[Rfam]
RNA sequence: GAGAAAUAGCUAUAAAGCUCAGGAGGGAUAGCGCCAUGGCUCACCAGUGCUGUAUGUUUUGUAUAUGCGUACAUGUAUAUCUGUUGGCGCUAUCCAUCCUGAGUUCCAUAGCUUCUUCUU
Numbered sequence: 001g002a003g004a005a006a007u008a009g010c011u012a013u014a015a016a017g018c019u020c021a022g023g024a025g026g027g028a029u030a031g032c033g034c035c036a037u038g039g040c041u042c043a044c045c046a047g048u049g050c051u052g053u054a055u056g057u058u059u060u061g062u063a064u065a066u067g068c069g070u071a072c073a074u075g076u077a078u079a080u081c082u083g084u085u086g087g088c089g090c091u092a093u094c095c096a097u098c099c100u101g102a103g104u105u106c107c108a109u110a111g112c113u114u115c116u117u118c119u120u
Stems, first nucleotide, its partner, number of pairs: 010111001016105009026095010
The family of this 120-nucleotide RNA sequence is "MIR390 microRNA precursor family". Rfam's curators put it in the seed alignment.